[Rfam]
RNA sequence: GUUCAGGGUCAGUUGGCUAAUUAUGUCACUCUCAUCUGUAAUUGCUGAGUGUUGUAUGGCAAUCAAGACAUAUGGUUGACAUAAUUUUUUAGGGAUCGCGUCUCGAAAAACGCGAUCCCUC
Numbered sequence: 001g002u003u004c005a006g007g008g009u010c011a012g013u014u015g016g017c018u019a020a021u022u023a024u025g026u027c028a029c030u031c032u033c034a035u036c037u038g039u040a041a042u043u044g045c046u047g048a049g050u051g052u053u054g055u056a057u058g059g060c061a062a063u064c065a066a067g068a069c070a071u072a073u074g075g076u077u078g079a080c081a082u083a084a085u086u087u088u089u090u091a092g093g094g095a096u097c098g099c100g101u102c103u104c105g106a107a108a109a110a111c112g113c114g115a116u117c118c119c120u121c
Base pairs, nucleotide, nucleotide: 008080009079010078011077012076014028015027016026017025029051031049032048033047034046036044052075053074054073055072056071057070058069091120092119093118094117095116096115097114098113099112100111101110103108
Dot-bracket structure: .......(((((.((((.......))))(.((((.(.......).)))).)(((((((..........))))))))))))..........(((((((((((.(....).))))))))))).

Rfam assigns this 121-nucleotide RNA from Lathyrus oleraceus to the family "U11 spliceosomal RNA".
Its Rfam clan is "U1 clan".
Pairs were carried over by alignment from the consensus structure, which is taken from published work.
It is annotated as a spliceosomal small nuclear RNA.